[Rfam]
RNA sequence: GUCUGUGAUAUUGUCCUGUCACAGCAGUACUGUUUAAAGAGUUACUGCUGCCGCGGGACAUGCUCAUAGCU
Numbered sequence: 001g002u003c004u005g006u007g008a009u010a011u012u013g014u015c016c017u018g019u020c021a022c023a024g025c026a027g028u029a030c031u032g033u034u035u036a037a038a039g040a041g042u043u044a045c046u047g048c049u050g051c052c053g054c055g056g057g058a059c060a061u062g063c064u065c066a067u068a069g070c071u
Base pairs, nucleotide, nucleotide: 003069004068005067006066012060013059014058015057016056017055018054022050023049024048025047026046027045028044029043
RNA: mir-1000 microRNA precursor family